[Rfam]
RNA sequence: CCAGUGAUAUCGUUAGGGUGUGCAGCUUUAUCAAUAGAUGCACCUUCAACCAUUAAGAAGAAUCCUUUAUUGUUUUUGCUUAAUUUGUUUAAAGCACUAUUUUC
Numbered sequence: 001c002c003a004g005u006g007a008u009a010u011c012g013u014u015a016g017g018g019u020g021u022g023c024a025g026c027u028u029u030a031u032c033a034a035u036a037g038a039u040g041c042a043c044c045u046u047c048a049a050c051c052a053u054u055a056a057g058a059a060g061a062a063u064c065c066u067u068u069a070u071u072g073u074u075u076u077u078g079c080u081u082a083a084u085u086u087g088u089u090u091a092a093a094g095c096a097c098u099a100u101u102u103u104c
Base pairs, nucleotide, nucleotide: 004076006074007073008072009071012050013049014048016046017045019042020041021040027034055070057068058067059066060065084094
Staphylococcus sRNA sau-13: a 104-nucleotide sequence from Staphylococcus saccharolyticus. The organism belongs to Staphylococcus, within Bacteria. A reference for the family is Abu-Qatouseh et al. (2010), "Identification of differentially expressed small non-protein-coding RNAs in Staphylococcus aureus displaying both the normal and the small-colony variant phenotype", J Mol Med (Berl). The match comes from Rfam's covariance-model search (101 bits). It is annotated as a small RNA.